[Rfam]
RNA sequence: CAGCAUGUUUCCAAGGGUUGUGGUUGGCUGCAGCCAUGGGAUCUCCAAUUGCAUGCGAGAGCAAUGUGGAGAGACUCUGACAGCUCAGGUCAGUAUAGUAUCUACGCUGUCACUCACCUUUCCUAUAAUA
Numbered sequence: 001c002a003g004c005a006u007g008u009u010u011c012c013a014a015g016g017g018u019u020g021u022g023g024u025u026g027g028c029u030g031c032a033g034c035c036a037u038g039g040g041a042u043c044u045c046c047a048a049u050u051g052c053a054u055g056c057g058a059g060a061g062c063a064a065u066g067u068g069g070a071g072a073g074a075c076u077c078u079g080a081c082a083g084c085u086c087a088g089g090u091c092a093g094u095a096u097a098g099u100a101u102c103u104a105c106g107c108u109g110u111c112a113c114u115c116a117c118c119u120u121u122c123c124u125a126u127a128a129u130a
Stems, first nucleotide, its partner, number of pairs: 011039002016035007068123006083110002087103003
RNA: Small nucleolar RNA SNORA44
Organism: Myotis lucifugus